RNA sequence: CUGCUUUGAGGAAAAAAAAAAAACAGAAUAAAGACUUCGUGUUU
Numbered sequence: 001c002u003g004c005u006u007u008g009a010g011g012a013a014a015a016a017a018a019a020a021a022a023a024c025a026g027a028a029u030a031a032a033g034a035c036u037u038c039g040u041g042u043u044u
Base pairs, nucleotide, nucleotide: 001026002025005023006022007021

About this RNA: The family of this 44-nucleotide sequence from Jaculus jaculus is "Renin stability regulatory element (REN-SRE)". Its family is annotated with protein binding and RNA destabilization in the Gene Ontology. It is annotated as a cis-regulatory element. The family's consensus secondary structure is taken from published work. For this family Rfam cites "HADHB, HuR, and CP1 Bind to the Distal 3'-Untranslated Region of Human Renin mRNA and Differentially Modulate Renin Expression" (Adams et al., J Biol Chem, 2003). The family has 13 seed sequences and 120 matches in Rfam 15.1.